[Rfam]
RNA: Caenorhabditis snoRNA ceN92
RNA sequence: CAGCACAUAAAUACGGAGAAUUUCGAAGUCGAUAUUUUCUAGUCGUAGUGUGCGAUAUAAACCGUUCUACUGCCACACGGGUACUGGCCUUGAAGCUGUAUCGGUUCCAAAGUUGUUCGAACAAUU
Numbered sequence: 001c002a003g004c005a006c007a008u009a010a011a012u013a014c015g016g017a018g019a020a021u022u023u024c025g026a027a028g029u030c031g032a033u034a035u036u037u038u039c040u041a042g043u044c045g046u047a048g049u050g051u052g053c054g055a056u057a058u059a060a061a062c063c064g065u066u067c068u069a070c071u072g073c074c075a076c077a078c079g080g081g082u083a084c085u086g087g088c089c090u091u092g093a094a095g096c097u098g099u100a101u102c103g104g105u106u107c108c109a110a111a112g113u114u115g116u117u118c119g120a121a122c123a124a125u126u
Base pairs, nucleotide, nucleotide: 003053004052005051006050007049008048015040016039017038018037019036020035021034024031025030069113070112071111077105078104080102081101082100083099084098086097087096088095